This 92-nucleotide sequence from cyanobiont of Ornithocercus magnificus belongs to the Rfam family "ATPC RNA motif". The family's RNA type in Rfam is non-coding RNA gene. For this family Rfam cites "Identification of 22 candidate structured RNAs in bacteria using the CMfinder comparative genomics pipeline" (Weinberg et al., Nucleic Acids Res, 2007).

[Rfam]
RNA sequence: UUCGUCAGUCCCUGGCGAUCUGCUAAACACAUCGCGCGCAGGUCUGGAUCAGCCAGGCCCGCCUCUCUAAUCUAUGGGGUGUCCCAAGCGCG
Dot-bracket structure: .(((((.......)))))................(((((.(((((((.....)))))))((((((..........))))))......)))))